[Rfam]
RNA sequence: GUUCUCAUGAGGAGAACUUAUGCAGUACCCACUGCGUAGCGACUAGAACUCGCAUAUAACAUUAAGGAAAAACAAAUG
Numbered sequence: 001g002u003u004c005u006c007a008u009g010a011g012g013a014g015a016a017c018u019u020a021u022g023c024a025g026u027a028c029c030c031a032c033u034g035c036g037u038a039g040c041g042a043c044u045a046g047a048a049c050u051c052g053c054a055u056a057u058a059a060c061a062u063u064a065a066g067g068a069a070a071a072a073c074a075a076a077u078g
Base pairs, nucleotide, nucleotide: 001017002016003015004014005013019038020037021036022035023034024033025032039053040052041051042050